[Rfam]
RNA sequence: CUAGGAUUCUCUGGAGAGUCUCAGCUUUGAGCGCCGAAGGUGUAAGCGAAAGCGGAAGUUUUCGCGAUCUCUCAGGCAAAAGGACAGAGCGAAUCGU
Numbered sequence: 001c002u003a004g005g006a007u008u009c010u011c012u013g014g015a016g017a018g019u020c021u022c023a024g025c026u027u028u029g030a031g032c033g034c035c036g037a038a039g040g041u042g043u044a045a046g047c048g049a050a051a052g053c054g055g056a057a058g059u060u061u062u063c064g065c066g067a068u069c070u071c072u073c074a075g076g077c078a079a080a081a082g083g084a085c086a087g088a089g090c091g092a093a094u095c096g097u
Base pairs, nucleotide, nucleotide: 007091009089010088011087012086013085020031021030022029023028033077034076035075036073037072040071042069046065047064048063049062050061051060052059053058

A member of the RNA family "Glycine riboswitch aptamer" from Zhenpiania hominis, 97 nucleotides long. The organism belongs to Zhenpiania, within Bacteria.